[Rfam]
RNA sequence: GGCGAUAAACGGUAAGUGGAAUAAUCGUUGUGGACCCGGGGGCAGUGCCCGGCGUCUCCACCAAAUUCUCGCUUCAACCCUCGGGCGGCGAGCAUGGGGACGAAACAGGCUCGACACGCGUGGUAAAGACUUAUCUUUUGCCCGGCAUUGUACCGCCGUUAUCGGGCUAAAUCACAAGUGCCAACGAUAACACGAAGGUGCUCGCUGCCGCUGCAUAA
Numbered sequence: 001g002g003c004g005a006u007a008a009a010c011g012g013u014a015a016g017u018g019g020a021a022u023a024a025u026c027g028u029u030g031u032g033g034a035c036c037c038g039g040g041g042g043c044a045g046u047g048c049c050c051g052g053c054g055u056c057u058c059c060a061c062c063a064a065a066u067u068c069u070c071g072c073u074u075c076a077a078c079c080c081u082c083g084g085g086c087g088g089c090g091a092g093c094a095u096g097g098g099g100a101c102g103a104a105a106c107a108g109g110c111u112c113g114a115c116a117c118g119c120g121u122g123g124u125a126a127a128g129a130c131u132u133a134u135c136u137u138u139u140g141c142c143c144g145g146c147a148u149u150g151u152a153c154c155g156c157c158g159u160u161a162u163c164g165g166g167c168u169a170a171a172u173c174a175c176a177a178g179u180g181c182c183a184a185c186g187a188u189a190a191c192a193c194g195a196a197g198g199u200g201c202u203c204g205c206u207g208c209c210g211c212u213g214c215a216u217a218a
Stems, first nucleotide, its partner, number of pairs: 001142005014132004026120003030117003036052005053102007143158004
The family of this 218-nucleotide RNA sequence from Neoasaia chiangmaiensis is "permuted transfer-messenger RNA". It is annotated as a non-coding RNA gene. Rfam's curators write: Bacterial tmRNA, also known as 10Sa RNA or SsrA, is named for its dual tRNA and mRNA-like properties. Its role is to liberate the mRNA from a stalled ribosome. To accomplish this part of the tmRNA is used as a reading frame that ends in a translation stop signal. The broken mRNA is replaced in the ribosome by the tmRNA and translation of the tmRNA leads to addition of a proteolysis tag to the incomplete protein enabling recognition by a protease. A search with the family's covariance model found it, with a score of 141 bits.